Rfam assigns this 100-nucleotide sequence to the family "L4-Archaeoglobi ribosomal protein leades".
It is one of the family's seed sequences.
The base pairs follow the family's consensus structure, which is taken from published work.
By type it is a cis-regulatory leader.

RNA sequence: CUGAUCGGCGCGUCCGGGUCAAUUGCGGAUUGCAACACCCGAUCUCCCUCACUGUGCCGUCAGCACUGACGGUCGCCGAGGGUGAGCGCGUGACGAUCAG
Number, nucleotide and partner (000 for none) at each position: 001c100002u099003g098004a097005u096006c000007g000008g091009c090010g089011c088012g087013u086014c000015c041016g040017g039018g038019u000020c000021a000022a000023u035024u034025g033026c032027g031028g000029a000030u000031u027032g026033c025034a024035a023036c000037a000038c018039c017040c016041g015042a000043u085044c084045u000046c082047c081048c080049u079050c078051a000052c000053u075054g000055u000056g000057c000058c000059g000060u000061c000062a000063g000064c000065a000066c000067u000068g000069a000070c000071g000072g000073u000074c000075g053076c000077c000078g050079a049080g048081g047082g046083u000084g044085a043086g013087c012088g011089c010090g009091u008092g000093a000094c000095g000096a005097u004098c003099a002100g001
For this family Rfam cites "Discovery of 20 novel ribosomal leader candidates in bacteria and archaea" (Eckert and Weinberg, BMC Microbiol, 2020).